[Rfam]
RNA sequence: AGCCCUCUGUAUCCGUGCUGAGAUUUUGUCACACACCAGAUCACAAGGGCUGAUGAGACUCGUAAGAUAUGUGCAGCG
Numbered sequence: 001a002g003c004c005c006u007c008u009g010u011a012u013c014c015g016u017g018c019u020g021a022g023a024u025u026u027u028g029u030c031a032c033a034c035a036c037c038a039g040a041u042c043a044c045a046a047g048g049g050c051u052g053a054u055g056a057g058a059c060u061c062g063u064a065a066g067a068u069a070u071g072u073g074c075a076g077c078g
Stems, first nucleotide, its partner, number of pairs: 002077002006073001008071006016064002019062004024058007
RNA: mir-3492 microRNA precursor family